Shown here is a 320-nucleotide RNA from Alphacoronavirus scotophili, a member of the family "Alphacoronavirus 5'UTR". The sequence is in the family's curated seed alignment. NCBI's taxonomy places the organism under Viruses, Pisoniviricetes, Nidovirales, Cornidovirineae, Alphacoronavirus scotophili. From the family's description: The first 150 to 200 nucleotides within the 5' UTR of alphacoronaviruses are highly structured and shown to be conserved on the structural level among alphacoronaviruses. The 5' UTR has been predicted to contain 3 conserved stem-loops: SL1, SL2 and SL4.

RNA sequence: GACUUAAAGAUAUUAUCUAUCUAUAGAUAGAUCAAUUUCUUUCCUAGACUUUUGUCUACUCGAUUCAACUAAACGAAAUUUUGUCCUUCAGCACACAUGUCUAUGUGUGCUGAAGUGAAAUUGGAAUUUCGCUAGGUUUGCUUAGUAGCUAGUACAAGUGUCGUGCUGCUCCAGGGUUCUUGGUGUGGGUUCCGUCUCACACUUCACACCCUCAAAGUAGCCUUCCUGCAGUUUUGUCUGCAGGUUGUGUGGAAAGUCUGUUCCGUCAGACUUGAAACCGAUAACUGUUAGCUAUGGCAAGCAACCAUAUUUCGUUGGCU
Numbered sequence: 001g002a003c004u005u006a007a008a009g010a011u012a013u014u015a016u017c018u019a020u021c022u023a024u025a026g027a028u029a030g031a032u033c034a035a036u037u038u039c040u041u042u043c044c045u046a047g048a049c050u051u052u053u054g055u056c057u058a059c060u061c062g063a064u065u066c067a068a069c070u071a072a073a074c075g076a077a078a079u080u081u082u083g084u085c086c087u088u089c090a091g092c093a094c095a096c097a098u099g100u101c102u103a104u105g106u107g108u109g110c111u112g113a114a115g116u117g118a119a120a121u122u123g124g125a126a127u128u129u130c131g132c133u134a135g136g137u138u139u140g141c142u143u144a145g146u147a148g149c150u151a152g153u154a155c156a157a158g159u160g161u162c163g164u165g166c167u168g169c170u171c172c173a174g175g176g177u178u179c180u181u182g183g184u185g186u187g188g189g190u191u192c193c194g195u196c197u198c199a200c201a202c203u204u205c206a207c208a209c210c211c212u213c214a215a216a217g218u219a220g221c222c223u224u225c226c227u228g229c230a231g232u233u234u235u236g237u238c239u240g241c242a243g244g245u246u247g248u249g250u251g252g253a254a255a256g257u258c259u260g261u262u263c264c265g266u267c268a269g270a271c272u273u274g275a276a277a278c279c280g281a282u283a284a285c286u287g288u289u290a291g292c293u294a295u296g297g298c299a300a301g302c303a304a305c306c307a308u309a310u311u312u313c314g315u316u317g318g319c320u
Stems, first nucleotide, its partner, number of pairs: 006042005012036003016031006045058005075130007084117001086115004091110008138304003145295007154288002157286002159283005173212003182203008225244007249278002255272006
Its Rfam clan is "Coronavirus 5' UTR".